Shown here is a 162-nucleotide sequence from Hibiscus trionum, a member of the family "U1 spliceosomal RNA". The family is grouped with related families in Rfam's "U1 clan". Rfam classes the family as a spliceosomal small nuclear RNA. Taxonomically the source falls in Hibiscus (Eukaryota, Streptophyta, Tracheophyta, eudicotyledons). The base pairs follow the family's consensus structure, which is taken from published work.
[Rfam]
RNA sequence: AUACUUACCUGGACGGGGUCGAUGGGUGAUCAAUAGGGCCCAUGGCCUAGGCUAGUGACCUCCAUUGCACUUGGGAGGGGUGCUCACCUAAGGUCUCCCCAAAGUGGGAGAGCCUACGUCAUAAUUUGUGGCAGUGGGGGCUUGCGUUCGCGCAGCCCCUGU
Numbered sequence: 001a002u003a004c005u006u007a008c009c010u011g012g013a014c015g016g017g018g019u020c021g022a023u024g025g026g027u028g029a030u031c032a033a034u035a036g037g038g039c040c041c042a043u044g045g046c047c048u049a050g051g052c053u054a055g056u057g058a059c060c061u062c063c064a065u066u067g068c069a070c071u072u073g074g075g076a077g078g079g080g081u082g083c084u085c086a087c088c089u090a091a092g093g094u095c096u097c098c099c100c101a102a103a104g105u106g107g108g109a110g111a112g113c114c115u116a117c118g119u120c121a122u123a124a125u126u127u128g129u130g131g132c133a134g135u136g137g138g139g140g141c142u143u144g145c146g147u148u149c150g151c152g153c154a155g156c157c158c159c160u161g162u
Stems, first nucleotide, its partner, number of pairs: 012120004016048006023042005049089003053086001055083003059079003062075002091115003094111003098107002135161005143154004